[Rfam]
RNA sequence: GCGACGCGGCCGCCGAAUCCGCGUUAUCGCGAAACCGGGGACCCACGUAAUUCCGGGGUGAAUCGGUUGCUCUCUCCUGAGGCAUCCGUAGGGCACUUCCACGCCCGAACCCGUCAGCUAACCCGGUAGGCGGCAUGGAAGCAAGGA
Numbered sequence: 001g002c003g004a005c006g007c008g009g010c011c012g013c014c015g016a017a018u019c020c021g022c023g024u025u026a027u028c029g030c031g032a033a034a035c036c037g038g039g040g041a042c043c044c045a046c047g048u049a050a051u052u053c054c055g056g057g058g059u060g061a062a063u064c065g066g067u068u069g070c071u072c073u074c075u076c077c078u079g080a081g082g083c084a085u086c087c088g089u090a091g092g093g094c095a096c097u098u099c100c101a102c103g104c105c106c107g108a109a110c111c112c113g114u115c116a117g118c119u120a121a122c123c124c125g126g127u128a129g130g131c132g133g134c135a136u137g138g139a140a141g142c143a144a145g146g147a
Stems, first nucleotide, its partner, number of pairs: 011132004018033001020031004034127006044055001056112003064088003091106004